RNA sequence: GAUUUCAAUAAUCUUCCUGAAAUCGCGGCUG
Number, nucleotide and partner (000 for none) at each position: 001g024002a023003u022004u021005u020006c019007a018008a000009u000010a000011a000012u000013c000014u000015u000016c000017c000018u007019g006020a005021a004022a003023u002024c001025g000026c000027g000028g000029c000030u000031g000